[Rfam]
RNA sequence: CCUGUUCGGCACCGACGCCGCCACAGGUCGGGAUGUGAUCCCCUUCGGGAUUGAACCAGGAA
Numbered sequence: 001c002c003u004g005u006u007c008g009g010c011a012c013c014g015a016c017g018c019c020g021c022c023a024c025a026g027g028u029c030g031g032g033a034u035g036u037g038a039u040c041c042c043c044u045u046c047g048g049g050a051u052u053g054a055a056c057c058a059g060g061a062a
Stems, first nucleotide, its partner, number of pairs: 001027005030057002037052005